[Rfam]
Record summary: This 76-nucleotide sequence from Spinacia oleracea belongs to the Rfam family "Small nucleolar RNA R66". By type it is a C/D-box small nucleolar RNA. Gene Ontology terms of the family: nucleolus and RNA processing. A search with the family's covariance model found it, with a score of 50 bits. Rfam describes the family as follows. snoR66 is a C/D box small nucleolar RNA, which acts as a methylation guide for 18S ribosomal RNA in plants. snoR66 has been alternatively named snoZ269 in rice.

RNA sequence: UCCGGUGAUGGUUUAAAUCUUUGAGAACUGAGAUCUUACCUUGCUGAAAAGCUUACAAGCAUGUUUUUCUGAGGAU
Number, nucleotide and partner (000 for none) at each position: 001u075002c074003c073004g000005g000006u000007g000008a000009u000010g000011g000012u000013u000014u000015a000016a000017a000018u000019c000020u000021u000022u000023g000024a000025g000026a000027a000028c000029u000030g000031a042032g039033a000034u000035c000036u000037u000038a000039c032040c000041u000042u031043g000044c000045u000046g000047a000048a000049a000050a000051g000052c000053u000054u000055a000056c000057a000058a000059g000060c000061a000062u000063g000064u000065u000066u000067u000068u000069c000070u000071g000072a000073g003074g002075a001076u000